A member of the RNA family "S4-Clostridia ribosomal protein leader", 61 nucleotides long.
The literature on the family includes a 2020 paper in BMC Microbiol by Eckert and Weinberg, "Discovery of 20 novel ribosomal leader candidates in bacteria and archaea".
The family's RNA type in Rfam is cis-regulatory leader.
RNA sequence: GAAAGGGUGCAUCAUAUUUGCACCUGGUGUGAUUCAGCAAAGUCUGACACACCCAGUUAAA
Numbered sequence: 001g002a003a004a005g006g007g008u009g010c011a012u013c014a015u016a017u018u019u020g021c022a023c024c025u026g027g028u029g030u031g032a033u034u035c036a037g038c039a040a041a042g043u044c045u046g047a048c049a050c051a052c053c054c055a056g057u058u059a060a061a
Stems, first nucleotide, its partner, number of pairs: 005025007026053006